[Rfam]
RNA sequence: UGGACCAAUGAUGAGGAUGUGUCACCAACCAAGAAUUAUGAUUAAUCCAGUUUUGUGCACCUGAGGUUCAAU
Number, nucleotide and partner (000 for none) at each position: 001u070002g069003g068004a067005c066006c065007a000008a000009u000010g000011a000012u000013g000014a000015g000016g000017a000018u000019g000020u000021g000022u000023c000024a000025c000026c000027a000028a000029c000030c000031a000032a000033g000034a000035a000036u000037u000038a000039u000040g000041a000042u000043u000044a000045a000046u000047c000048c000049a000050g000051u000052u000053u000054u000055g000056u000057g000058c000059a000060c000061c000062u000063g000064a000065g006066g005067u004068u003069c002070a001071a000072u000

This 72-nucleotide RNA from Equus caballus belongs to the Rfam family "Small nucleolar RNA SNORD112".
The organism belongs to Equus, within Eukaryota.
Rfam 15.1 lists 191 matches to the family in 119 species.
It is annotated as a C/D-box small nucleolar RNA.
The family is grouped with related families in Rfam's "SNORD74 clan".